[Rfam]
RNA: c-di-GMP-I riboswitch aptamer
Organism: Pelotomaculum schinkii
RNA sequence: CUAAUAAUAGGGCUAACCCGCCGAAAGGCGGGGGCGCAAAGCCGACGGGCCUAAAGCAUGCGAGCUAAGGCGGCCGGGUUGCUGAU
Numbered sequence: 001c002u003a004a005u006a007a008u009a010g011g012g013c014u015a016a017c018c019c020g021c022c023g024a025a026a027g028g029c030g031g032g033g034g035c036g037c038a039a040a041g042c043c044g045a046c047g048g049g050c051c052u053a054a055a056g057c058a059u060g061c062g063a064g065c066u067a068a069g070g071c072g073g074c075c076g077g078g079u080u081g082c083u084g085a086u
Base pairs, nucleotide, nucleotide: 012037013036017032018031019030020029021028022027040080041079042078043077046076047075048074049071050070051069056065057064